[Rfam]
RNA: Streptomyces-metH RNA
RNA sequence: GGCGUCCGCCUCGUGGACGCCGCUGCCCAUCCAAGCCGACUCCCGGCUACCCUGGCGCCGUGCGGUAUCCGGGCCCGUCCCGGGACACCCGCAUAGCCGACAGCCGUCGCAUCUAGGGAGUCCUUUCAUG
Numbered sequence: 001g002g003c004g005u006c007c008g009c010c011u012c013g014u015g016g017a018c019g020c021c022g023c024u025g026c027c028c029a030u031c032c033a034a035g036c037c038g039a040c041u042c043c044c045g046g047c048u049a050c051c052c053u054g055g056c057g058c059c060g061u062g063c064g065g066u067a068u069c070c071g072g073g074c075c076c077g078u079c080c081c082g083g084g085a086c087a088c089c090c091g092c093a094u095a096g097c098c099g100a101c102a103g104c105c106g107u108c109g110c111a112u113c114u115a116g117g118g119a120g121u122c123c124u125u126u127c128a129u130g
Stems, first nucleotide, its partner, number of pairs: 061093004066087001068085002096110002099108003